[Rfam]
Nucleotides: 135
Stems, first nucleotide, its partner, number of pairs: 011120004018028003029115006039048002049100003057074006077094004
Number, partner (000 for none) and nucleotide at each position: 001000u002000a003000a004000u005000c006000g007000u008000u009000a010000u011120c012119g013118c014117u015000g016000a017000a018028c019027c020026c021000g022000a023000a024000a025000a026020g027019g028018g029115g030114c031113g032112g033111g034110g035000g036000a037000c038000c039048c040047a041000c042000a043000c044000u045000u046000u047040u048039g049100g050099g051098g052000c053000g054000a055000a056000u057074c058073u059072c060071u061070u062069c063000c064000u065000a066000c067000g068000g069062g070061a071060a072059g073058a074057g075000u076000a077094g078093g079092g080091u081000u082000a083000c084000u085000c086000c087000u088000u089000c090000g091080a092079c093078c094077c095000g096000a097000g098051c099050c100049c101000g102000u103000c104000a105000g106000c107000u108000a109000a110034c111033c112032u113031c114030g115029c116000a117014a118013g119012c120011g121000u122000g123000g124000g125000a126000a127000g128000g129000a130000g131000a132000a133000a134000u135000a

Annotation
c-di-AMP riboswitch aptamer (ydaO/yuaA leader): a 135-nucleotide RNA sequence from Caldanaerobacter subterraneus. NCBI's taxonomy places the organism under Bacteria, Clostridia, Thermoanaerobacteraceae, Caldanaerobacter, Caldanaerobacter subterraneus subsp. tengcongensis.